[Rfam]
RNA sequence: GAGAGGAGGCACUCACAAGAACGAAGUUCUUGUUUUUCAUAGUGCCGACGACUUGCCGCCGAACGAAGGUGAGGGGGCGUUACCUUAA
Numbered sequence: 001g002a003g004a005g006g007a008g009g010c011a012c013u014c015a016c017a018a019g020a021a022c023g024a025a026g027u028u029c030u031u032g033u034u035u036u037u038c039a040u041a042g043u044g045c046c047g048a049c050g051a052c053u054u055g056c057c058g059c060c061g062a063a064c065g066a067a068g069g070u071g072a073g074g075g076g077g078c079g080u081u082a083c084c085u086u087a088a
Stems, first nucleotide, its partner, number of pairs: 008046006016032006055078003059074002063070002
This 88-nucleotide RNA belongs to the Rfam family "GA-cis RNA". Rfam's curators put it in the seed alignment. Rfam classes the family as a small RNA.